[Rfam]
RNA sequence: AACGUGCUCCGGGGUCGGUGAGAAUCCGAACCGGCGGUGAUAGUCCGCGAGCCGUGAGAGUUGCCCAGUCGGGUCGCUCGAGCGGUUGAACUGGUGAAACUCCAGUACCGACGGUUAAAGUCCGGAUGGGAGGCGCACGGG
Numbered sequence: 001a002a003c004g005u006g007c008u009c010c011g012g013g014g015u016c017g018g019u020g021a022g023a024a025u026c027c028g029a030a031c032c033g034g035c036g037g038u039g040a041u042a043g044u045c046c047g048c049g050a051g052c053c054g055u056g057a058g059a060g061u062u063g064c065c066c067a068g069u070c071g072g073g074u075c076g077c078u079c080g081a082g083c084g085g086u087u088g089a090a091c092u093g094g095u096g097a098a099a100c101u102c103c104a105g106u107a108c109c110g111a112c113g114g115u116u117a118a119a120g121u122c123c124g125g126a127u128g129g130g131a132g133g134c135g136c137a138c139g140g141g
Stems, first nucleotide, its partner, number of pairs: 003139005009133002016028003030121002032110002034048004043108002051086005090106005112124003
RNA: FMN riboswitch aptamer (RFN element)